[Rfam]
RNA sequence: GGCCGGUGAUGAUCCACAUUUACCUUUCUGACACCUCGUCUGAGGGCGGCGGGCGGCCGCAGCCCCUGCUGAGCAGCCACGGCUGAGGCCC
Dot-bracket structure: ((((.........................................(((((.....)))))..........................)))).
Rfam assigns this 91-nucleotide sequence from Ploceus nigricollis to the family "Small nucleolar RNA SNORD60".
It scores 43 bits against the family's covariance model.